Overview
Rfam assigns this 73-nucleotide RNA sequence from Danionella cerebrum to the family "mir-24 microRNA precursor family". Pairs were carried over by alignment from the consensus structure, which was predicted with RNAalifold. The literature on the family includes a 2001 paper in Science by Lagos-Quintana et al., "Identification of novel genes coding for small expressed RNAs". Rfam links the family to the GO terms RISC complex and miRNA-mediated post-transcriptional gene silencing. Lineage of the source: Eukaryota > Deuterostomia > Vertebrata > Actinopteri > Danionella. The family has 63 seed sequences and 1,372 matches in Rfam 15.1. Rfam describes the family as follows. This family represents the microRNA (miRNA) mir-24 family. miRNAs are transcribed as ~70nt precursors (modelled here) and subsequently processed by the Dicer enzyme to give a ~22nt product. In this case the mature sequence comes from the 3' arm of the precursor. The extents of the hairpin precursors are not generally known and are estimated based on hairpin prediction. The products are thought to have regulatory roles through complementarity to mRNA. The involvement of Dicer in miRNA processing suggests a relationship with the phenomenon of RNA interference. miRNAs are numbered based on the sequence of the mature RNA. miR-24 has been identified in human and mouse. The match comes from Rfam's covariance-model search (63 bits).

RNA sequence: GUCUCCGGGGCCUGCUGUGCUGAUCAUCAGUGUGUCUCUGCUUGUAACUGGCUCAGUUCAGCAGGAACAGGAG
Numbered sequence: 001g002u003c004u005c006c007g008g009g010g011c012c013u014g015c016u017g018u019g020c021u022g023a024u025c026a027u028c029a030g031u032g033u034g035u036c037u038c039u040g041c042u043u044g045u046a047a048c049u050g051g052c053u054c055a056g057u058u059c060a061g062c063a064g065g066a067a068c069a070g071g072a073g
Base pairs, nucleotide, nucleotide: 003073004072005071006070008068011065012064013063015061016060017059019057020056021055022054023053027051028050029049030048031047